[Rfam]
RNA: Early nodulin 40
RNA sequence: AUGAAAGUCUAUUGUUGAUUAUCGAUAAUACGUCCAUGGGUCCUAGAAAAAGAAUGGGGCUGGCUGGAUUAUUGAGGGCUUCCUUGAAUUUCAAUUACCCUCACAAAGCUCUGGAUUCAUUCAAACAGUGUACCGAUGCUUAGCCAAUGGUAUACUGAUUCCAGCAGCACAUGAUGAGAUGAAGCAGCAAUAUUCUCUAGGACCAUUGGUUUUGCUGGCCUGAAGCGCUGCUGCAAACCGGCAAGUCACAGAAAGGCAAUGGGCUCAGUUACGAGUCUU
Numbered sequence: 001a002u003g004a005a006a007g008u009c010u011a012u013u014g015u016u017g018a019u020u021a022u023c024g025a026u027a028a029u030a031c032g033u034c035c036a037u038g039g040g041u042c043c044u045a046g047a048a049a050a051a052g053a054a055u056g057g058g059g060c061u062g063g064c065u066g067g068a069u070u071a072u073u074g075a076g077g078g079c080u081u082c083c084u085u086g087a088a089u090u091u092c093a094a095u096u097a098c099c100c101u102c103a104c105a106a107a108g109c110u111c112u113g114g115a116u117u118c119a120u121u122c123a124a125a126c127a128g129u130g131u132a133c134c135g136a137u138g139c140u141u142a143g144c145c146a147a148u149g150g151u152a153u154a155c156u157g158a159u160u161c162c163a164g165c166a167g168c169a170c171a172u173g174a175u176g177a178g179a180u181g182a183a184g185c186a187g188c189a190a191u192a193u194u195c196u197c198u199a200g201g202a203c204c205a206u207u208g209g210u211u212u213u214g215c216u217g218g219c220c221u222g223a224a225g226c227g228c229u230g231c232u233g234c235a236a237a238c239c240g241g242c243a244a245g246u247c248a249c250a251g252a253a254a255g256g257c258a259a260u261g262g263g264c265u266c267a268g269u270u271a272c273g274a275g276u277c278u279u
Stems, first nucleotide, its partner, number of pairs: 069114003128238002131235001133233001148223001262277005
Dot-bracket structure: ....................................................................(((........................................))).............((.(.(..............(..........................................................................).........).).)).......................(((((......)))))..